[Rfam]
RNA sequence: GGUUUCGGGUAAUCACGGCUAGCAAUAGCUAGCUGAGGAAAGUCCAUGCUCGCACAAGCUGCGAUGCUUGUAGUGUUCGUGCUUAGCGAAAAAAUAAGCUAAGGCAUUAAGUUGACGGCGCUGGUCCCCACUAAGGUUUCGGCUAGGUGGGCAAACAGCCUAAGGUGCCACAGAGACGAUCUAGCAAAGAAAUGCGCUAGUUGGAACGGGUAAACCCCUCGAGCGAGCAACCCAAACAUUGGUCGGGGCACUGCCCAAAGGGAAAUGAACUGACGGGCGGACCAUUAGGUAGAUAGAUGAUUACCAAAAUUGCUCCUAGCAAGAGUAAUGGAACAGAACAUGGCUUAUAGAA
Numbered sequence: 001g002g003u004u005u006c007g008g009g010u011a012a013u014c015a016c017g018g019c020u021a022g023c024a025a026u027a028g029c030u031a032g033c034u035g036a037g038g039a040a041a042g043u044c045c046a047u048g049c050u051c052g053c054a055c056a057a058g059c060u061g062c063g064a065u066g067c068u069u070g071u072a073g074u075g076u077u078c079g080u081g082c083u084u085a086g087c088g089a090a091a092a093a094a095u096a097a098g099c100u101a102a103g104g105c106a107u108u109a110a111g112u113u114g115a116c117g118g119c120g121c122u123g124g125u126c127c128c129c130a131c132u133a134a135g136g137u138u139u140c141g142g143c144u145a146g147g148u149g150g151g152c153a154a155a156c157a158g159c160c161u162a163a164g165g166u167g168c169c170a171c172a173g174a175g176a177c178g179a180u181c182u183a184g185c186a187a188a189g190a191a192a193u194g195c196g197c198u199a200g201u202u203g204g205a206a207c208g209g210g211u212a213a214a215c216c217c218c219u220c221g222a223g224c225g226a227g228c229a230a231c232c233c234a235a236a237c238a239u240u241g242g243u244c245g246g247g248g249c250a251c252u253g254c255c256c257a258a259a260g261g262g263a264a265a266u267g268a269a270c271u272g273a274c275g276g277g278c279g280g281a282c283c284a285u286u287a288g289g290u291a292g293a294u295a296g297a298u299g300a301u302u303a304c305c306a307a308a309a310u311u312g313c314u315c316c317u318a319g320c321a322a323g324a325g326u327a328a329u330g331g332a333a334c335a336g337a338a339c340a341u342g343g344c345u346u347a348u349a350g351a352a
Base pairs, nucleotide, nucleotide: 004352005351006350007348008305009304010303011302012301013300014299016035017034018033019032020031021030040346041345042344044343045342046341047340048339049227050226051225052224053223054071055070056069057068058067059066077222078221079220081218082103083102084101085100086099087098104116105114106113117217118216120159121158122157123156128150129149130148131147135144136143137142165215166214167211168210169209181200182199183198184197185196188193231247232246233245251280252279253278254277255276256275281290282289283288309329310328311327312326313325314324315323
Notes:
This 352-nucleotide RNA from Aerococcus urinaehominis belongs to the Rfam family "Bacterial RNase P class B". Rfam's curators write: Ribonuclease P (RNase P) is a ubiquitous endoribonuclease, found in archaea, bacteria and eukarya as well as chloroplasts and mitochondria. Its best characterised activity is the generation of mature 5'-ends of tRNAs by cleaving the 5'-leader elements of precursor-tRNAs.